[Rfam]
RNA sequence: UGGGUAGUAUCGAAAAAGAGUUACACCAAAUUUUUUAGCAUUAAUUAUAUAUAAUACAACUCAUAUCUAUAAUGAAUGAGAUUGAAAU
Numbered sequence: 001u002g003g004g005u006a007g008u009a010u011c012g013a014a015a016a017a018g019a020g021u022u023a024c025a026c027c028a029a030a031u032u033u034u035u036u037a038g039c040a041u042u043a044a045u046u047a048u049a050u051a052u053a054a055u056a057c058a059a060c061u062c063a064u065a066u067c068u069a070u071a072a073u074g075a076a077u078g079a080g081a082u083u084g085a086a087a088u
Stems, first nucleotide, its partner, number of pairs: 001028003004024005010019002057084003060080005066075002
RNA: pan motif